RNA: Conserved CCUCCUCCC motif stress-induced RNA 1
Organism: Szabonella alba
RNA sequence: GUCUUUGCGAAGGCCCACCUCCUCCCGGGUCUUGUAGCAAAAGCGGCGGCACCCUCUCCUCCUCCCUGGUGUCGCCGCACCUU
Number, nucleotide and partner (000 for none) at each position: 001g000002u000003c000004u000005u000006u036007g035008c034009g000010a033011a032012g031013g030014c029015c028016c027017a000018c000019c000020u000021c000022c000023u000024c000025c000026c000027g016028g015029g014030u013031c012032u011033u010034g008035u007036a006037g000038c000039a000040a000041a000042a000043g000044c077045g076046g075047c074048g073049g072050c071051a070052c069053c068054c000055u000056c000057u000058c000059c000060u000061c000062c000063u000064c000065c000066c000067u000068g053069g052070u051071g050072u049073c048074g047075c046076c045077g044078c000079a000080c000081c000082u000083u000